[Rfam]
RNA sequence: CAGCGAUAUGAUGGCAUACCAUCUUUCGGGACUGACUUUUACAGUGGAGAUGUUUUACCCUUAACUGAUCGCUC
Numbered sequence: 001c002a003g004c005g006a007u008a009u010g011a012u013g014g015c016a017u018a019c020c021a022u023c024u025u026u027c028g029g030g031a032c033u034g035a036c037u038u039u040u041a042c043a044g045u046g047g048a049g050a051u052g053u054u055u056u057a058c059c060c061u062u063a064a065c066u067g068a069u070c071g072c073u074c
Base pairs, nucleotide, nucleotide: 002073003072004071005070006069

A member of the RNA family "Small nucleolar RNA SNORD2" from Tetraodon nigroviridis, 74 nucleotides long. Pairs were carried over by alignment from the consensus structure, which was predicted with WAR. Rfam 15.1 lists 1,116 matches to the family in 660 species. Rfam's curators put it in the seed alignment. Gene Ontology terms of the family: RNA processing and nucleolus. For this family Rfam cites "Identification of a novel box C/D snoRNA from mouse nucleolar cDNA library" (Zhou et al., Gene, 2004). The source organism's lineage runs through Eukaryota, Chordata, Neoteleostei, Tetraodontiformes and Tetraodon.